The family of this 80-nucleotide RNA from Sus scrofa is "U1A polyadenylation inhibition element (PIE)".
The source organism's lineage runs through Eukaryota, Teleostomi, Euteleostomi, Sarcopterygii and Sus.
By type it is a cis-regulatory element.
On this family, see Clerte and Hall, Biochemistry 2004: "Global and Local Dynamics of the U1A Polyadenylation Inhibition Element (PIE) RNA and PIE RNA-U1A Complexes".
About the family: This family represents the U1A polyadenylation inhibition element (PIE). PIE is a regulatory RNA which is responsible for the regulation of the length of the polyA tail of the U1A pre-mRNA. The PIE is located in the U1A mRNA 3' UTR. PIE adopts a U-shaped structure, with binding sites for a single U1A protein at each bend and when complexed with the two proteins it blocks activity of poly(A) polymerase (PAP), and inhibits its activity.

RNA sequence: CCACACAGCAUAGUACCCAGAGUCCGUCCUUUGUACCUGACAUCGUACCUGACACUGUUAGGCUGGAAUUGAAGUGGUUU
Numbered sequence: 001c002c003a004c005a006c007a008g009c010a011u012a013g014u015a016c017c018c019a020g021a022g023u024c025c026g027u028c029c030u031u032u033g034u035a036c037c038u039g040a041c042a043u044c045g046u047a048c049c050u051g052a053c054a055c056u057g058u059u060a061g062g063c064u065g066g067a068a069u070u071g072a073a074g075u076g077g078u079u080u
Base pairs, nucleotide, nucleotide: 005058006057007056008055018051019050020049022041023040024039026037

Description
Rfam 15.1 lists 510 matches to the family in 331 species. The match comes from Rfam's covariance-model search (56 bits).